Glycine riboswitch aptamer: a 77-nucleotide RNA sequence from Gluconobacter oxydans. This family represents the bacterial glycine riboswitch. NCBI's taxonomy places the organism under Bacteria, Pseudomonadati, Pseudomonadota, Alphaproteobacteria, Gluconobacter oxydans. The pairing is the family consensus, mapped onto this sequence.
[Rfam]
RNA sequence: GACAUUCUGGAGAGAGGUGCGCUGGACGCAUCCGCCGACGGGAUAGCGAUCUCAGGCGAAAGGACAGAAGGGGCGAC
Numbered sequence: 001g002a003c004a005u006u007c008u009g010g011a012g013a014g015a016g017g018u019g020c021g022c023u024g025g026a027c028g029c030a031u032c033c034g035c036c037g038a039c040g041g042g043a044u045a046g047c048g049a050u051c052u053c054a055g056g057c058g059a060a061a062g063g064a065c066a067g068a069a070g071g072g073g074c075g076a077c
Stems, first nucleotide, its partner, number of pairs: 003071001005069005016032004034057003037053002041051002